The family of this 280-nucleotide RNA sequence from Smittium simulii is "Group I catalytic intron". Gene Ontology term of the family: Group I intron splicing.
[Rfam]
RNA sequence: UUUUUAUGGUCUUGAACAAUGGCCAAAACUGUAGUGAACCUAUGGUUAUAAAUCAUCAAAUUGCGGGAACAUCCUAAAGGAAUCUUAACCAAGUAAGUAUGGUAACAUAACUUAUGGCACAGGUAAUGACUCGUGGUACGGUAAAAUCAAGAUUUAUUAUUCAAUGGACAAUCCGCAGCCAAGUAUCUAAUAAUAUAGAUAUGCAGUUCAUCGACUAGACGGUGAUUGGUGUGACUUAGUCAUGCUUAAGGUAUAGUCAGACCCCACUUGAAAGAGUGCU
Numbered sequence: 001u002u003u004u005u006a007u008g009g010u011c012u013u014g015a016a017c018a019a020u021g022g023c024c025a026a027a028a029c030u031g032u033a034g035u036g037a038a039c040c041u042a043u044g045g046u047u048a049u050a051a052a053u054c055a056u057c058a059a060a061u062u063g064c065g066g067g068a069a070c071a072u073c074c075u076a077a078a079g080g081a082a083u084c085u086u087a088a089c090c091a092a093g094u095a096a097g098u099a100u101g102g103u104a105a106c107a108u109a110a111c112u113u114a115u116g117g118c119a120c121a122g123g124u125a126a127u128g129a130c131u132c133g134u135g136g137u138a139c140g141g142u143a144a145a146a147u148c149a150a151g152a153u154u155u156a157u158u159a160u161u162c163a164a165u166g167g168a169c170a171a172u173c174c175g176c177a178g179c180c181a182a183g184u185a186u187c188u189a190a191u192a193a194u195a196u197a198g199a200u201a202u203g204c205a206g207u208u209c210a211u212c213g214a215c216u217a218g219a220c221g222g223u224g225a226u227u228g229g230u231g232u233g234a235c236u237u238a239g240u241c242a243u244g245c246u247u248a249a250g251g252u253a254u255a256g257u258c259a260g261a262c263c264c265c266a267c268u269u270g271a272a273a274g275a276g277u278g279c280u
Stems, first nucleotide, its partner, number of pairs: 001021001003019002031040001051227005057221001062177006072168003178207002183202004211259001213258005229245007265278005
Dot-bracket structure: (.((.............)).).........(........)..........(((((.(....((((((....(((...........................................................................................)))...))))))((...((((............))))...))...[.[[[[[...).))))).(((((((...)))))))........]]]]]].....(((((....)))))..